[Rfam]
RNA sequence: UGAGGAAGCCUGUGAUGUCGUGUCUGAACCUGGCUGAAGGACUCUUGUGAAGACUCUUUUUGGUUCUGAGGCUUCCAGAGCA
Numbered sequence: 001u002g003a004g005g006a007a008g009c010c011u012g013u014g015a016u017g018u019c020g021u022g023u024c025u026g027a028a029c030c031u032g033g034c035u036g037a038a039g040g041a042c043u044c045u046u047g048u049g050a051a052g053a054c055u056c057u058u059u060u061u062g063g064u065u066c067u068g069a070g071g072c073u074u075c076c077a078g079a080g081c082a
Base pairs, nucleotide, nucleotide: 004076005075006074007073008072009071010070
A member of the RNA family "Small nucleolar RNA SNORD91 family" from Leptocoma aspasia, 82 nucleotides long.
A search with the family's covariance model found it, with a score of 56 bits.
NCBI's taxonomy places the organism under Eukaryota, Deuterostomia, Sarcopterygii, Telluraves, Leptocoma.
It is annotated as a C/D-box small nucleolar RNA.
Rfam 15.1 lists 977 matches to the family in 495 species.